[Rfam]
RNA sequence: CUCCGAUAAGGGCUAACCCGGAGCAAUCCGGGGGCGCAGAGCCAAGGGUCCCACUGGGACAGCCGAGCUGCCGAA
Numbered sequence: 001c002u003c004c005g006a007u008a009a010g011g012g013c014u015a016a017c018c019c020g021g022a023g024c025a026a027u028c029c030g031g032g033g034g035c036g037c038a039g040a041g042c043c044a045a046g047g048g049u050c051c052c053a054c055u056g057g058g059a060c061a062g063c064c065g066a067g068c069u070g071c072c073g074a075a
Base pairs, nucleotide, nucleotide: 012037013036017032018031019030020029021028022027040069041068042067046064047063048060049059050058051057052056
RNA: c-di-GMP-I riboswitch aptamer
Organism: Desulfuromonas soudanensis